[Rfam]
RNA: raiA RNA
Organism: Collinsella sp. An2
RNA sequence: UCCCCCCGUGCUGUGGUUGCCGGCGCGCAUGGCGCGCGCCCUAGUCCAUGACAGACGCGGUCAAAGGGACCCACGUAAGCGUUCGCGUGCGCGCGAACGCGAUCAUGGCGCGUCCUAGAGGUAAGUCGCACCGUCCGUCUACUUGAGGGCAAUUCCGCCCCGCGGGCGAGCGGGCUAGUCGUGAUGUCGCCGCGGCGGCAGCAGCAAACGUCCCAGUGCGCAGGUGUGGGGUCAAAGACCAGGUCAGACGAGGGGU
Numbered sequence: 001u002c003c004c005c006c007c008g009u010g011c012u013g014u015g016g017u018u019g020c021c022g023g024c025g026c027g028c029a030u031g032g033c034g035c036g037c038g039c040c041c042u043a044g045u046c047c048a049u050g051a052c053a054g055a056c057g058c059g060g061u062c063a064a065a066g067g068g069a070c071c072c073a074c075g076u077a078a079g080c081g082u083u084c085g086c087g088u089g090c091g092c093g094c095g096a097a098c099g100c101g102a103u104c105a106u107g108g109c110g111c112g113u114c115c116u117a118g119a120g121g122u123a124a125g126u127c128g129c130a131c132c133g134u135c136c137g138u139c140u141a142c143u144u145g146a147g148g149g150c151a152a153u154u155c156c157g158c159c160c161c162g163c164g165g166g167c168g169a170g171c172g173g174g175c176u177a178g179u180c181g182u183g184a185u186g187u188c189g190c191c192g193c194g195g196c197g198g199c200a201g202c203a204g205c206a207a208a209c210g211u212c213c214c215a216g217u218g219c220g221c222a223g224g225u226g227u228g229g230g231g232u233c234a235a236a237g238a239c240c241a242g243g244u245c246a247g248a249c250g251a252g253g254g255g256u
Stems, first nucleotide, its partner, number of pairs: 002255004007250003011247003014241005048227003051061001054114006070108002075103001079100009106234001127220005132168007172213004181205002187198003